RNA sequence: CUCUGUUAAUGACGUCUCUCCCUCUAAACCCCAUUAAGGACUGGGAGAGGCAGAGCAAGCCUCAGAG
Numbered sequence: 001c002u003c004u005g006u007u008a009a010u011g012a013c014g015u016c017u018c019u020c021c022c023u024c025u026a027a028a029c030c031c032c033a034u035u036a037a038g039g040a041c042u043g044g045g046a047g048a049g050g051c052a053g054a055g056c057a058a059g060c061c062u063c064a065g066a067g
Base pairs, nucleotide, nucleotide: 001067002066003065004064005063014051015050016049017048018047019046020045021044022043031039032038

This 67-nucleotide RNA sequence belongs to the Rfam family "Selenocysteine insertion sequence 1". The incorporation of selenocysteine into a protein sequence is directed by an in-frame UGA codon (usually a stop codon) within the coding region of the mRNA. Selenoprotein mRNAs contain a conserved secondary structure in the 3' UTR that is required for the distinction of UGA stop from UGA selenocysteine. The family's consensus secondary structure is taken from published work. It is annotated as a cis-regulatory element.